[Rfam]
RNA sequence: UGUAGUUGCAGGUAGGAAUACGCUGUACACCCGUGCAACCGAAUUAACGUUUAAGCGGUGUUAUCCACCGUCGGUCACGGGGCCACCGAUUUUCGGUGGUUUUUUUUUGG
Numbered sequence: 001u002g003u004a005g006u007u008g009c010a011g012g013u014a015g016g017a018a019u020a021c022g023c024u025g026u027a028c029a030c031c032c033g034u035g036c037a038a039c040c041g042a043a044u045u046a047a048c049g050u051u052u053a054a055g056c057g058g059u060g061u062u063a064u065c066c067a068c069c070g071u072c073g074g075u076c077a078c079g080g081g082g083c084c085a086c087c088g089a090u091u092u093u094c095g096g097u098g099g100u101u102u103u104u105u106u107u108u109g110g
Stems, first nucleotide, its partner, number of pairs: 007027005012021003030081006038075004042051003055071006082100008
Dot-bracket structure: ......((((((((....))).)))))..((((((..(((((((....)))...((((((.....))))))))))))))))((((((((...))))))))..........

DUF3800-I RNA: a 110-nucleotide RNA from Lachnospiraceae bacterium NK4A136. Rfam's curators put it in the seed alignment. Taxonomically the source falls in Lachnospiraceae (Bacteria, Bacillati, Clostridia, Lachnospirales). Rfam describes the family as follows. Actinobacteria, Firmicutes, Fusobacteria, Proteobacteria (1 example), Tenericutes (2 examples).